[Rfam]
RNA sequence: GGUGCUUUGGUCUAGUGGUAGGACGUCACGUUGUGGCCGUGCCAGCCCCGGUUCGAUUCCGGGAAGCACCA
Numbered sequence: 001g002g003u004g005c006u007u008u009g010g011u012c013u014a015g016u017g018g019u020a021g022g023a024c025g026u027c028a029c030g031u032u033g034u035g036g037c038c039g040u041g042c043c044a045g046c047c048c049c050g051g052u053u054c055g056a057u058u059c060c061g062g063g064a065a066g067c068a069c070c071a
Stems, first nucleotide, its partner, number of pairs: 001070007010024004027041004047063005
The family of this 71-nucleotide sequence from Aspergillus oryzae is "tRNA".
The base pairs follow the family's consensus structure, which is taken from published work.
Rfam links the family to the GO term triplet codon-amino acid adaptor activity.